[Rfam]
RNA sequence: GGCUUCAACAUCCCCGCCGGUUGGGCGCGGCGUAUUUUCAAACGACGCGCAGUGAAUCGACUGGAGCC
Dot-bracket structure: (((((((.....[[.(.((((((.(((((.((..........)).))))).])]))))).))))))))